[Rfam]
RNA sequence: AAUUUUGUUCAUAAGAACAAAAAUAAGUAUAUCUAUUUUAUAUAUACCCGAUAAGUAUCAAUAUGUAAUGGGA
Number, nucleotide and partner (000 for none) at each position: 001a000002a000003u022004u021005u000006u019007g018008u017009u016010c015011a000012u000013a000014a000015g010016a009017a008018c007019a006020a000021a004022a003023a000024u000025a000026a000027g000028u000029a000030u000031a000032u000033c000034u000035a000036u000037u000038u000039u000040a000041u000042a000043u000044a000045u000046a000047c072048c071049c070050g000051a000052u000053a000054a000055g064056u063057a062058u000059c000060a000061a000062u057063a056064u055065g000066u000067a000068a000069u000070g049071g048072g047073a000
A member of the RNA family "Plastid-clpP 5UTR RNA" from Cocos nucifera, 73 nucleotides long. It scores 69 bits against the family's covariance model. From the family's description: Plastid clpP is a non-coding RNA (ncRNA) recognised in plastids. The base pairs follow the family's consensus structure, which was predicted with LocARNA. Lineage of the source: Eukaryota > Streptophytina > commelinids > Arecales > Cocos. It is annotated as a cis-regulatory element. The family has 343 seed sequences and 2,105 matches in Rfam 15.1.